[Rfam]
RNA sequence: ACCUGUUCCCGUGGCCCGAGUGCGGCCCACGGGGCAACGGACACACAUUGUGCCUGGGAAGAUCUGGGCACUUCAGGGCGUU
Number, nucleotide and partner (000 for none) at each position: 001a000002c000003c000004u036005g035006u034007u033008c000009c032010c031011g030012u029013g028014g027015c000016c025017c024018g023019a000020g000021u000022g000023c018024g017025g016026c000027c014028c013029a012030c011031g010032g009033g007034g006035c005036a004037a000038c000039g000040g000041a000042c000043a000044c000045a000046c000047a000048u000049u000050g071051u070052g069053c068054c067055u066056g064057g000058g000059a000060a000061g000062a000063u000064c056065u000066g055067g054068g053069c052070a051071c050072u000073u000074c000075a000076g000077g000078g000079c000080g000081u000082u000
RNA: nrdJ RNA